[Rfam]
RNA sequence: CGCCCCGUCAUUGGGGAGUAGCCGCCCUUCGCAGCAUUCGAAGGGGCCCGCGUCAACACACUUGGCCCACCGGCCAUGGCGCGCGCAGUCUCUCGACCUGGCAAGACCUUUGACCAUGAGGCCGCCGGACUGGCCGGGGCGCGCAUGGUCAUCGGUGUCCGUUCCGGCCAGGGAGCUCU
Numbered sequence: 001c002g003c004c005c006c007g008u009c010a011u012u013g014g015g016g017a018g019u020a021g022c023c024g025c026c027c028u029u030c031g032c033a034g035c036a037u038u039c040g041a042a043g044g045g046g047c048c049c050g051c052g053u054c055a056a057c058a059c060a061c062u063u064g065g066c067c068c069a070c071c072g073g074c075c076a077u078g079g080c081g082c083g084c085g086c087a088g089u090c091u092c093u094c095g096a097c098c099u100g101g102c103a104a105g106a107c108c109u110u111u112g113a114c115c116a117u118g119a120g121g122c123c124g125c126c127g128g129a130c131u132g133g134c135c136g137g138g139g140c141g142c143g144c145a146u147g148g149u150c151a152u153c154g155g156u157g158u159c160c161g162u163u164c165c166g167g168c169c170a171g172g173g174a175g176c177u178c179u
Stems, first nucleotide, its partner, number of pairs: 026044003046086002049083007063076005088177001090175004
RNA: Manganese Mn2+ riboswitch aptamer (yybP-ykoY)
Organism: Zeimonas arvi